[Rfam]
RNA sequence: GGAGGUAGGCCCUCCGAACUCGCUGAGCAGGCAGAGAGUUCAAACCACCUCAAGCGGCGUUAGUAAAGAGCUAACGUCGUGAGCGUUGAGGCAAAAGGCCCGUCAUAACGGGUCAGGU
Numbered sequence: 001g002g003a004g005g006u007a008g009g010c011c012c013u014c015c016g017a018a019c020u021c022g023c024u025g026a027g028c029a030g031g032c033a034g035a036g037a038g039u040u041c042a043a044a045c046c047a048c049c050u051c052a053a054g055c056g057g058c059g060u061u062a063g064u065a066a067a068g069a070g071c072u073a074a075c076g077u078c079g080u081g082a083g084c085g086u087u088g089a090g091g092c093a094a095a096a097g098g099c100c101c102g103u104c105a106u107a108a109c110g111g112g113u114c115a116g117g118u
Stems, first nucleotide, its partner, number of pairs: 001015005016041006023034003046117001048091006054080002057077003061073004097114006
Rfam assigns this 118-nucleotide RNA from Ferrithrix thermotolerans to the family "Group II catalytic intron D1-D4-2". Group II introns are found in rRNA, tRNA and mRNA of organelles in fungi, plants and protists, and also in mRNA in bacteria. NCBI's taxonomy places the organism under Bacteria, Bacillati, Acidimicrobiales, Ferrithrix, Ferrithrix thermotolerans.